About this RNA:
The family of this 126-nucleotide RNA sequence from Centropus unirufus is "Small nucleolar RNA SNORA15". Rfam classes the family as an H/ACA-box small nucleolar RNA. Lineage of the source: Eukaryota > Chordata > Theropoda > Coelurosauria > Centropus. Rfam's curators write: ACA15 is a member of the H/ACA class of snoRNA that guide the sites of modification of uridines to pseudouridines. The family has 22 seed sequences and 974 matches in Rfam 15.1. It scores 58 bits against the family's covariance model.
[Rfam]
RNA sequence: GCAUGGGUGAAUUCUGCACUGGCUUUCCUGAGUAGCUACUGCAGUCAGACACCAUGCCAGAAUGAAUUCCCUCUUUGCACUCUGGGUGUUCUCUUGAACGGGUGUGCCCUUGGAAGUGGGAGACAU
Numbered sequence: 001g002c003a004u005g006g007g008u009g010a011a012u013u014c015u016g017c018a019c020u021g022g023c024u025u026u027c028c029u030g031a032g033u034a035g036c037u038a039c040u041g042c043a044g045u046c047a048g049a050c051a052c053c054a055u056g057c058c059a060g061a062a063u064g065a066a067u068u069c070c071c072u073c074u075u076u077g078c079a080c081u082c083u084g085g086g087u088g089u090u091c092u093c094u095u096g097a098a099c100g101g102g103u104g105u106g107c108c109c110u111u112g113g114a115a116g117u118g119g120g121a122g123a124c125a126u
Stems, first nucleotide, its partner, number of pairs: 001057006014044005070119002073116004081112001084109006091102003
Dot-bracket structure: ((((((.......(((((.....................))))).......))))))............((.((((....(..((((((.(((......))).))))))..))))).)).......